[Rfam]
RNA sequence: CCAAAAUCUGCGCCGGAACCAAGCAGCAUCCAACAUUUGUCACUGCCGUGCUCGCCGCCGCUGACCCCAAUCUCCUGAACUGCGGGUUUCAACAGUAGCUGAUGCCGCUAGCUACUGUUGACAACCUCCGUUCAGGGGUUUACGGUCCGUGGCGGUGAGCACGGCAGUGACAAAUGUUGGAUGCCGCUUGGUUCCGGCGCAGAUUUCGG
Number, nucleotide and partner (000 for none) at each position: 001c209002c208003a000004a206005a205006a204007u203008c202009u201010g200011c199012g198013c197014c196015g195016g194017a193018a192019c191020c190021a189022a188023g187024c186025a000026g184027c183028a182029u181030c180031c179032a178033a177034c000035a175036u174037u173038u172039g171040u170041c169042a000043c167044u166045g165046c164047c163048g162049u161050g160051c159052u158053c157054g000055c155056c154057g153058c152059c151060g150061c149062u000063g147064a146065c145066c144067c000068c000069a141070a140071u000072c138073u000074c136075c135076u134077g133078a132079a131080c130081u000082g000083c000084g126085g125086g000087u000088u000089u000090c120091a119092a118093c117094a116095g115096u114097a113098g112099c111100u110101g000102a000103u000104g000105c000106c000107g000108c000109u000110a100111g099112c098113u097114a096115c095116u094117g093118u092119u091120g090121a000122c000123a000124a000125c085126c084127u000128c000129c000130g080131u079132u078133c077134a076135g075136g074137g000138g072139u000140u070141u069142a000143c000144g066145g065146u064147c063148c000149g061150u060151g059152g058153c057154g056155g055156u000157g053158a052159g051160c050161a049162c048163g047164g046165c045166a044167g043168u000169g041170a040171c039172a038173a037174a036175u035176g000177u033178u032179g031180g030181a029182u028183g027184c026185c000186g024187c023188u022189u021190g020191g019192u018193u017194c016195c015196g014197g013198c012199g011200c010201a009202g008203a007204u006205u005206u004207c000208g002209g001
RNA: MIR8622 microRNA precursor family